[Rfam]
Nucleotides: 097
Base pairs, nucleotide, nucleotide: 001043002042003041004040005039010031011030012029013028014027015026016025067097069095071093073090074089075088076087077086
Number, partner (000 for none) and nucleotide at each position: 001043g002042g003041a004040u005039c006000g007000a008000g009000u010031g011030c012029c013028g014027c015026g016025c017000u018000u019000u020000g021000g022000g023000u024000c025016g026015u027014g028013u029012g030011g031010c032000g033000a034000g035000a036000a037000u038000g039005g040004a041003u042002c043001c044000c045000c046000g047000a048000u049000a050000u051000u052000g053000c054000c055000g056000u057000c058000u059000c060000g061000u062000a063000u064000g065000g066000c067097c068000g069095c070000c071093c072000g073090c074089g075088c076087a077086g078000u079000c080000g081000c082000c083000c084000a085000a086077c087076u088075g089074c090073g091000u092000c093071g094000u095069g096000g097067g
A member of the RNA family "Rhodo-rpoB RNA" from Sulfitobacter albidus, 97 nucleotides long. The base pairs follow the family's consensus structure, which is taken from published work. The source organism's lineage runs through Bacteria, Pseudomonadati, Alphaproteobacteria, Roseobacteraceae and Sulfitobacter. It scores 53 bits against the family's covariance model.